[Rfam]
RNA: FMN riboswitch aptamer (RFN element)
RNA sequence: AUGGAUCUUCGGGGUAGGGUGAAAUUCCCAAUCGGCGGUGACGUUCUUGCAAUAAAGAACGAAGCCCGCGACUCGCUGCUCAAGCAUUCCUUGCGCACGCGACUGACUUGGUGCAAUUCCAAGGCCGACGGUUACAGUCCGGAUGAGAGAAGAUCAUC
Numbered sequence: 001a002u003g004g005a006u007c008u009u010c011g012g013g014g015u016a017g018g019g020u021g022a023a024a025u026u027c028c029c030a031a032u033c034g035g036c037g038g039u040g041a042c043g044u045u046c047u048u049g050c051a052a053u054a055a056a057g058a059a060c061g062a063a064g065c066c067c068g069c070g071a072c073u074c075g076c077u078g079c080u081c082a083a084g085c086a087u088u089c090c091u092u093g094c095g096c097a098c099g100c101g102a103c104u105g106a107c108u109u110g111g112u113g114c115a116a117u118u119c120c121a122a123g124g125c126c127g128a129c130g131g132u133u134a135c136a137g138u139c140c141g142g143a144u145g146a147g148a149g150a151a152g153a154u155c156a157u158c
Stems, first nucleotide, its partner, number of pairs: 004155007017029003031138002033127002035069004064125002073102004107123005129141003